Mason-Pfizer monkey virus packaging signal: a 275-nucleotide RNA sequence from Nannospalax galili. Rfam links the family to the GO term viral genome packaging. About the family: This family represents a group of sequences that are related to the Mason-Pfizer monkey virus (MPMV) packaging signal. The packaging signal is located in the 5' UTR and is required for specific RNA encapsidation.
RNA sequence: UGGCGCCCAAUGUGGGGCUGGAUACUGGGGGACAAUGUGAGGGUCCGACGAUGAAGGAAAGAAGGGGUGCGCACCCGCUCAAGUAGUUCGGAGACGUCGUGGUAGCCUGCUGUGACCGAGCCGACAGGUAAGUUGGUCGUUAAUCAUGGGGAAAGAAUUAAGUCAGCAUCAGAAAUAUGUGAUACAGUUAAGAGAAGCUUUACAGGCAAGAGGAGUAAAGGUUACAACUGAGGAUUUAUUUCAUUUCUUUGAUUUUGUGAAAGACAUCUGCCCAU
Numbered sequence: 001u002g003g004c005g006c007c008c009a010a011u012g013u014g015g016g017g018c019u020g021g022a023u024a025c026u027g028g029g030g031g032a033c034a035a036u037g038u039g040a041g042g043g044u045c046c047g048a049c050g051a052u053g054a055a056g057g058a059a060a061g062a063a064g065g066g067g068u069g070c071g072c073a074c075c076c077g078c079u080c081a082a083g084u085a086g087u088u089c090g091g092a093g094a095c096g097u098c099g100u101g102g103u104a105g106c107c108u109g110c111u112g113u114g115a116c117c118g119a120g121c122c123g124a125c126a127g128g129u130a131a132g133u134u135g136g137u138c139g140u141u142a143a144u145c146a147u148g149g150g151g152a153a154a155g156a157a158u159u160a161a162g163u164c165a166g167c168a169u170c171a172g173a174a175a176u177a178u179g180u181g182a183u184a185c186a187g188u189u190a191a192g193a194g195a196a197g198c199u200u201u202a203c204a205g206g207c208a209a210g211a212g213g214a215g216u217a218a219a220g221g222u223u224a225c226a227a228c229u230g231a232g233g234a235u236u237u238a239u240u241u242c243a244u245u246u247c248u249u250u251g252a253u254u255u256u257g258u259g260a261a262a263g264a265c266a267u268c269u270g271c272c273c274a275u
Base pairs, nucleotide, nucleotide: 006030007029008028012025013024014023036050037049038048088128089127090125095120096117098114099113100112101111102110137152138151140150141149143147159202160201161200162198163197210250211249212248213247214246215245219237220236221235222234223233260275263272265270